[Rfam]
RNA: Glycine riboswitch aptamer
Organism: Mycolicibacterium sediminis
RNA sequence: CGUCCCCUUGCGGGAGAGUUCCGUGGUUGCCAGCUGCGGACGCCGAAGGAGCAAUACCUCUCCAUCAACCUCUCAGGCACAAGGACCGCCUGGGGCCC
Numbered sequence: 001c002g003u004c005c006c007c008u009u010g011c012g013g014g015a016g017a018g019u020u021c022c023g024u025g026g027u028u029g030c031c032a033g034c035u036g037c038g039g040a041c042g043c044c045g046a047a048g049g050a051g052c053a054a055u056a057c058c059u060c061u062c063c064a065u066c067a068a069c070c071u072c073u074c075a076g077g078c079a080c081a082a083g084g085a086c087c088g089c090c091u092g093g094g095g096c097c098c
Stems, first nucleotide, its partner, number of pairs: 006093002010089004020040006042078003045074002049072003
Dot-bracket structure: .....((..((((......((((((.........)))))).(((((..(((..................))))).))).......))))..)).....